The record is a 77-nucleotide RNA sequence from Microcaecilia unicolor, which matches "mir-306 microRNA precursor family" in Rfam. The source organism's lineage runs through Eukaryota, Craniata, Sarcopterygii, Gymnophiona and Microcaecilia. Gene Ontology terms of the family: miRNA-mediated post-transcriptional gene silencing and RISC complex. The family has 16 seed sequences and 49 matches in Rfam 15.1. A reference for the family is Aravin et al. (2003), "The small RNA profile during Drosophila melanogaster development", Dev Cell.
RNA sequence: GUUCAAAGAGUUCAGGCACAAACUGGCUUGCAAAACACAGCGUUUUGCAAGCCAGUUUGUGCCUGCACUCUUUGAAC
Dot-bracket structure: ((((((.((((.(((((((..((((((((((((((.......))))))))))))))..))))))).))))).)))))